A member of the RNA family "Small nucleolar RNA R160" from Hibiscus syriacus, 84 nucleotides long.
Rfam 15.1 lists 799 matches to the family in 221 species.
Pairs were carried over by alignment from the consensus structure.
It is annotated as a C/D-box small nucleolar RNA.
The match comes from Rfam's covariance-model search (48 bits).
[Rfam]
Nucleotides: 084
Stems, first nucleotide, its partner, number of pairs: 001084005
Number, partner (000 for none) and nucleotide at each position: 001084a002083g003082c004081a005080a006000a007000a008000u009000g010000a011000g012000g013000a014000u015000u016000u017000u018000u019000u020000u021000a022000a023000u024000g025000g026000c027000u028000g029000a030000a031000a032000g033000u034000g035000a036000c037000g038000a039000g040000g041000a042000g043000u044000u045000u046000c047000c048000g049000u050000a051000u052000c053000a054000u055000u056000u057000u058000a059000a060000u061000g062000g063000u064000c065000u066000u067000c068000a069000g070000a071000g072000u073000u074000c075000u076000c077000u078000g079000a080005u081004u082003g083002c084001u